Shown here is a 633-nucleotide RNA sequence from Canis lupus, a member of the family "FGF-2 internal ribosome entry site (IRES)". Its family is annotated with ribosome binding in the Gene Ontology. Rfam's curators write: This family represents the fibroblast growth factor 2 (FGF-2) internal ribosome entry site (IRES). When expressed the FGF-2 protein plays a pivotal role in cell proliferation, differentiation and survival as well as being involved in wound-healing. It has been found that FGF-2 IRES activity is strictly controlled and highly tissue specific. It is thought that translational IRES dependent activation of FGF-2 plays a vital role in embryogenesis and in the adult brain. The match comes from Rfam's covariance-model search (114 bits).

RNA sequence: CUGCGGCCGCGGCUCCCGACCCAGAGGCCGGCCCCACGGAGCCCGGAGCGAGGAGGGGGCGGCGCGCAGGAAGGGAGGAGAGCGGGGGCGCGGGGGGGCGGGGGGCCUUCAGGGGUGGGGAUGUAGAAGAUGUGACGCCGCGGCCCGGCCGCUGCCAGACGGCCGACGCGGUGCCCGGGGCUGGCUGCUGGUGCCGGCGCUGCGCUAGGGGAGGCGGCCCUCCCGCGAGCGGCGGCCGCGGACACGCCCGGCCCCGGCCCCGGCCCCGAGCGCAGCUCCCCGGCCCCGGCCCCGAGCGCAGCUCCCCGAGCCCGAGCGCAGCUCCCCGGCCUCGAGACCGUGCUCAGCUCCCCGGCCCCGGGCGCAGCUCCCCGAGCCCGAGCCCGAGCCCGAGCCCGAGCGCAGCAUCCCGGCCCGCGCGCAGCUCCCCAGGGCAGCCGGCGAGGGGAGCGGCCGGGCGGCGCGAGGCUGGGGGCCCGCGGGCGCGGCCGCGCGCUGCCGGGCGGGAGGCUGGGGGGCCGGGGCCGUGGCCGCGCCCCGGACCGGGUCGGGGGCCGGGGCCGGGGGGCGGCGGCGGCUCCUCGCGCGGCUCCGGGGGCGCGGACACCCCGGCAGAGCCCCGGGGGCGCCAUG
Numbered sequence: 001c002u003g004c005g006g007c008c009g010c011g012g013c014u015c016c017c018g019a020c021c022c023a024g025a026g027g028c029c030g031g032c033c034c035c036a037c038g039g040a041g042c043c044c045g046g047a048g049c050g051a052g053g054a055g056g057g058g059g060c061g062g063c064g065c066g067c068a069g070g071a072a073g074g075g076a077g078g079a080g081a082g083c084g085g086g087g088g089c090g091c092g093g094g095g096g097g098g099c100g101g102g103g104g105g106c107c108u109u110c111a112g113g114g115g116u117g118g119g120g121a122u123g124u125a126g127a128a129g130a131u132g133u134g135a136c137g138c139c140g141c142g143g144c145c146c147g148g149c150c151g152c153u154g155c156c157a158g159a160c161g162g163c164c165g166a167c168g169c170g171g172u173g174c175c176c177g178g179g180g181c182u183g184g185c186u187g188c189u190g191g192u193g194c195c196g197g198c199g200c201u202g203c204g205c206u207a208g209g210g211g212a213g214g215c216g217g218c219c220c221u222c223c224c225g226c227g228a229g230c231g232g233c234g235g236c237c238g239c240g241g242a243c244a245c246g247c248c249c250g251g252c253c254c255c256g257g258c259c260c261c262g263g264c265c266c267c268g269a270g271c272g273c274a275g276c277u278c279c280c281c282g283g284c285c286c287c288g289g290c291c292c293c294g295a296g297c298g299c300a301g302c303u304c305c306c307c308g309a310g311c312c313c314g315a316g317c318g319c320a321g322c323u324c325c326c327c328g329g330c331c332u333c334g335a336g337a338c339c340g341u342g343c344u345c346a347g348c349u350c351c352c353c354g355g356c357c358c359c360g361g362g363c364g365c366a367g368c369u370c371c372c373c374g375a376g377c378c379c380g381a382g383c384c385c386g387a388g389c390c391c392g393a394g395c396c397c398g399a400g401c402g403c404a405g406c407a408u409c410c411c412g413g414c415c416c417g418c419g420c421g422c423a424g425c426u427c428c429c430c431a432g433g434g435c436a437g438c439c440g441g442c443g444a445g446g447g448g449a450g451c452g453g454c455c456g457g458g459c460g461g462c463g464c465g466a467g468g469c470u471g472g473g474g475g476c477c478c479g480c481g482g483g484c485g486c487g488g489c490c491g492c493g494c495g496c497u498g499c500c501g502g503g504c505g506g507g508a509g510g511c512u513g514g515g516g517g518g519c520c521g522g523g524g525c526c527g528u529g530g531c532c533g534c535g536c537c538c539c540g541g542a543c544c545g546g547g548u549c550g551g552g553g554g555c556c557g558g559g560g561c562c563g564g565g566g567g568g569c570g571g572c573g574g575c576g577g578c579u580c581c582u583c584g585c586g587c588g589g590c591u592c593c594g595g596g597g598g599c600g601c602g603g604a605c606a607c608c609c610c611g612g613c614a615g616a617g618c619c620c621c622g623g624g625g626g627c628g629c630c631a632u633g
Base pairs, nucleotide, nucleotide: 029521030520031519032518033517034516035515043506044505045504058500059499060498061497062496063495064494065493066492067491083262084261085260086259087258089256090255092253103249104248105247106246144191145190149177151175153173154172155171156170195238196237197236198234199233200232201231202230203229209224210223211222212221213220214219267465268464270462271461273437275435276434277433278432537547538546539545540544557621558620559619560618561617567613584601585600586599587598602610603609